[Rfam]
RNA: mir-458 microRNA precursor family
Organism: Apaloderma vittatum
RNA sequence: GUACAUAUGGUAGUACCAUUCAAAGAGCUAUGACAAGGAGACUAUUUAUAGCUCCAAAAAUGGCACUGCCAUCUGCAC
Numbered sequence: 001g002u003a004c005a006u007a008u009g010g011u012a013g014u015a016c017c018a019u020u021c022a023a024a025g026a027g028c029u030a031u032g033a034c035a036a037g038g039a040g041a042c043u044a045u046u047u048a049u050a051g052c053u054c055c056a057a058a059a060a061u062g063g064c065a066c067u068g069c070c071a072u073c074u075g076c077a078c
Stems, first nucleotide, its partner, number of pairs: 002077001004075001007072003011068003016063005025054007